[Rfam]
RNA sequence: UAGAACAAUGUAGGUAAGGGAAGUCGGCAAAAUAGAUCCGUAACUUCGGGAAAAGGAUUGGCUCUAAGGGUUGGGUCUGUCGGGCUGGGACUUGAAGCAGGUGGUCUGGUCCUUGACUGGCUGUGGCUCGCAAGAGCUACUGCUGGACUCGGAAGAGACUGCCGGUGAAUGGGCCCAGCUUUGCCAGCGAUGGCAGUUCGGCAGGCAAUUAACAACCAACUUAGAACUGGUACGGACAAGGGAAUCCGACUGUUUAAUUAAAACAAAGCAUUGCGAUGGCCGGAAACGGUGUUGACGCAAUGUGAUUUCUGCCCAGUGCUCUGAAUGUCAAAGUGAAGAAAUUCAACCAAGCGCGGGUAAACGGCGGGAGUAACUAUGACUCUCUUAAGGUAGCCAAAUGCCUCGUCAUCUAAUUAGUGACGCGCAUGAAUGGAUUAACGAGAUUCCCACUGUCCCUAUCUACUAUCUAGCGAAACCACAGCCAAGGGAACGGGCUUGGCAAA
Number, nucleotide and partner (000 for none) at each position: 001u469002a468003g467004a466005a000006c000007a000008a000009u000010g463011u462012a461013g460014g459015u458016a457017a000018g455019g454020g453021a000022a000023g000024u000025c000026g000027g000028c000029a000030a000031a000032a000033u000034a000035g059036a058037u057038c056039c055040g000041u000042a000043a000044c049045u000046u000047c000048g000049g044050g000051a000052a000053a000054a000055g039056g038057a037058u036059u035060g228061g227062c000063u225064c224065u223066a222067a221068g220069g217070g216071u215072u214073g213074g000075g206076u205077c204078u203079g202080u201081c200082g199083g198084g179085c178086u177087g000088g175089g174090a000091c172092u000093u000094g000095a000096a000097g166098c165099a000100g163101g000102u161103g160104g159105u158106c157107u156108g000109g000110u153111c152112c151113u000114u000115g148116a000117c146118u145119g144120g143121c142122u000123g140124u139125g138126g137127c136128u135129c134130g000131c000132a000133a000134g129135a128136g127137c126138u125139a124140c123141u000142g121143c120144u119145g118146g117147a000148c115149u000150c000151g112152g111153a110154a000155g000156a107157g106158a105159c104160u103161g102162c000163c100164g000165g098166u097167g000168a000169a000170u000171g000172g091173g000174c089175c088176c000177a086178g085179c084180u000181u000182u000183g000184c000185c000186a000187g000188c000189g000190a000191u000192g000193g000194c000195a000196g000197u000198u083199c082200g081201g080202c079203a078204g077205g076206c075207a000208a000209u000210u000211a000212a000213c073214a072215a071216c070217c069218a000219a000220c068221u067222u066223a065224g064225a063226a000227c061228u060229g233230g000231u000232a000233c229234g000235g000236a000237c000238a000239a000240g448241g447242g446243a445244a444245u443246c442247c440248g439249a000250c000251u265252g264253u263254u000255u000256a000257a000258u000259u000260a000261a000262a000263a253264c252265a251266a000267a000268g303269c302270a301271u300272u299273g298274c297275g296276a000277u000278g000279g290280c289281c288282g287283g000284a000285a000286a000287c282288g281289g280290u279291g000292u000293u000294g000295a000296c275297g274298c273299a272300a271301u270302g269303u268304g000305a000306u000307u434308u433309c432310u000311g365312c364313c363314c000315a000316g362317u361318g358319c357320u356321c355322u000323g354324a000325a000326u353327g352328u351329c000330a000331a000332a000333g000334u345335g344336a343337a342338g000339a000340a000341a000342u337343u336344c335345a334346a000347c000348c000349a000350a000351g328352c327353g326354c323355g321356g320357g319358u318359a000360a000361a317362c316363g313364g312365c311366g384367g383368g382369a381370g380371u379372a000373a000374c000375u000376a000377u000378g000379a371380c370381u369382c368383u367384c366385u389386u000387a000388a000389g385390g000391u000392a000393g000394c000395c000396a000397a000398a000399u000400g000401c000402c000403u000404c000405g421406u420407c419408a418409u417410c000411u000412a000413a000414u000415u000416a000417g409418u408419g407420a406421c405422g000423c000424g000425c000426a000427u000428g000429a000430a000431u000432g309433g308434a307435u000436u000437a000438a000439c248440g247441a000442g246443a245444u244445u243446c242447c241448c240449a000450c000451u000452g000453u020454c019455c018456c000457u016458a015459u014460c013461u012462a011463c010464u000465a000466u004467c003468u002469a001470g000471c000472g000473a000474a000475a000476c000477c000478a000479c000480a000481g000482c499483c498484a497485a496486g495487g000488g000489a000490a000491c000492g000493g000494g000495c486496u485497u484498g483499g482500c000501a000502a000503a000
About this RNA
A member of the RNA family "Eukaryotic large subunit ribosomal RNA" from Aurelia sp. Incheon-2006, 503 nucleotides of a longer RNA. The sequence is in the family's curated seed alignment. The base pairs follow the family's consensus structure, which is taken from published work. The organism belongs to Aurelia, within Eukaryota.